RNA sequence: GUUGGUGUUGUGUGGGAAGUAGUUCACAAAGGUGUACCCGCGCGCCUGGUCGAUGAUGUGGAACAGCGGGUUCCAAUCGAACAUGUUGAUCAUGAAACCCGGCAACAUGUUGGCCACGAACAUCUUGCCUGACGCGAUCAUGUUGGCGCGG
Numbered sequence: 001g002u003u004g005g006u007g008u009u010g011u012g013u014g015g016g017a018a019g020u021a022g023u024u025c026a027c028a029a030a031g032g033u034g035u036a037c038c039c040g041c042g043c044g045c046c047u048g049g050u051c052g053a054u055g056a057u058g059u060g061g062a063a064c065a066g067c068g069g070g071u072u073c074c075a076a077u078c079g080a081a082c083a084u085g086u087u088g089a090u091c092a093u094g095a096a097a098c099c100c101g102g103c104a105a106c107a108u109g110u111u112g113g114c115c116a117c118g119a120a121c122a123u124c125u126u127g128c129c130u131g132a133c134g135c136g137a138u139c140a141u142g143u144u145g146g147c148g149c150g151g
Base pairs, nucleotide, nucleotide: 003034004033006032008030009029014024015023039055040054041052042051064151066149067148068147070082071081072080073079086145089144091142092141093140094139098134100131101130102129103127104126105125107123108122110119111118112117
Dot-bracket structure: ..((.(.((....((.......))....)).)))....((((........)).))........(.(((.((((.....))))...(..(.((((...(.((((((.((.(((....)))..)).))).)))..)....)))).)).))).)
The family of this 151-nucleotide sequence from Roseicyclus elongatus is "Ruegeria cis2 sRNA". The literature on the family includes a 2016 paper in Front Microbiol by Rivers et al., "Experimental Identification of Small Non-Coding RNAs in the Model Marine Bacterium Ruegeria pomeroyi DSS-3".